[Rfam]
RNA: Fungal signal recognition particle RNA
RNA sequence: CAGCUGUAAUGGCUAACAAGUAUGGAAGUCGAGCGACUUGUUCGCUUAAAGCUUGGAUACGAGGUUCAACCUCAGUUCUGACGUUGCCCACUCGGAGCUUCAGGUGGAGGUACACUCGUGUGGGAAACUCACGAUCGCUGCUGCCUUCCUCAGCCAUGACCUGCACCUUCACAGAGAGUCUUCACUCAGCAUGAAUCGGGUCUCCUGAAGCUAGCGAAGCUGGAUUACAACGGAGGAAAUCUGAGCCUGCGAAAUGCCCGCUCGGCAACUUUUUUU
Number, nucleotide and partner (000 for none) at each position: 001c000002a014003g013004c012005u000006g000007u000008a000009a000010u000011g000012g004013c003014u002015a000016a000017c000018a000019a000020g274021u000022a272023u000024g270025g269026a000027a000028g000029u000030c264031g263032a262033g261034c260035g259036a000037c000038u000039u000040g000041u000042u252043c251044g250045c249046u000047u000048a000049a248050a000051g246052c245053u244054u243055g242056g241057a240058u239059a000060c000061g073062a072063g071064g070065u069066u000067c000068a000069a065070c064071c063072u062073c061074a000075g000076u000077u000078c236079u235080g000081a000082c232083g231084u230085u229086g228087c000088c223089c222090a221091c000092u219093c000094g000095g215096a212097g211098c210099u209100u208101c207102a206103g205104g204105u000106g148107g000108a146109g145110g144111u143112a000113c140114a139115c000116u134117c133118g132119u131120g130121u000122g129123g128124g000125a000126a000127a000128c123129u122130c120131a119132c118133g117134a116135u000136c000137g000138c000139u114140g113141c000142u000143g111144c110145c109146u108147u000148c106149c153150u000151c000152a000153g149154c000155c000156a000157u000158g202159a201160c200161c199162u198163g197164c000165a000166c000167c000168u195169u194170c193171a192172c000173a000174g000175a000176g187177a186178g185179u000180c000181u000182u000183c000184a000185c178186u177187c176188a000189g000190c000191a000192u171193g170194a169195a168196u000197c163198g162199g161200g160201u159202c158203u000204c104205c103206u102207g101208a100209a099210g098211c097212u096213a000214g000215c095216g000217a000218a000219g092220c000221u090222g089223g088224a000225u000226u000227a000228c086229a085230a084231c083232g082233g000234a000235g079236g078237a000238a000239a058240u057241c056242u055243g054244a053245g052246c051247c000248u049249g045250c044251g043252a042253a000254a000255u000256g000257c000258c000259c035260g034261c033262u032263c031264g030265g000266c000267a000268a000269c025270u024271u000272u022273u000274u020275u000276u000